[Rfam]
RNA: small nucleolar RNA snoR117
Organism: Chlamydomonas eustigma
Nucleotides: 086
Base pairs, nucleotide, nucleotide: 001085002084003083004082
Number, partner (000 for none) and nucleotide at each position: 001085g002084g003083u004082u005000u006000g007000u008000g009000a010000u011000g012000a013000g014000c015000u016000g017000g018000u019000a020000u021000u022000g023000u024000c025000c026000g027000u028000a029000c030000c031000a032000u033000c034000u035000g036000a037000g038000g039000c040000c041000u042000a043000a044000g045000g046000c047000u048000c049000u050000u051000g052000a053000u054000g055000a056000u057000a058000c059000a060000a061000c062000c063000u064000a065000c066000c067000a068000c069000u070000u071000g072000g073000a074000g075000c076000u077000a078000c079000u080000g081000a082004a083003a084002c085001c086000c